[Rfam]
RNA sequence: AUGAACGGUAGAUCUAAAGCCCGUAUAUGUUUAGGAAUAUGGCCUAAACGUUUCUACCCGACUACCGUAAAUAGUCGGACUACGAGCGAUAGGUUACCUGGA
Numbered sequence: 001a002u003g004a005a006c007g008g009u010a011g012a013u014c015u016a017a018a019g020c021c022c023g024u025a026u027a028u029g030u031u032u033a034g035g036a037a038u039a040u041g042g043c044c045u046a047a048a049c050g051u052u053u054c055u056a057c058c059c060g061a062c063u064a065c066c067g068u069a070a071a072u073a074g075u076c077g078g079a080c081u082a083c084g085a086g087c088g089a090u091a092g093g094u095u096a097c098c099u100g101g102a
Base pairs, nucleotide, nucleotide: 019087020086022084023083024082025081029049030048031047032046033045034044035043058078059077060076061075062074063073064072
The family of this 102-nucleotide RNA sequence from Thermoflavimicrobium dichotomicum is "Purine riboswitch aptamer". The source organism's lineage runs through Bacteria, Bacillota, Caryophanales, Thermoactinomycetaceae and Thermoflavimicrobium.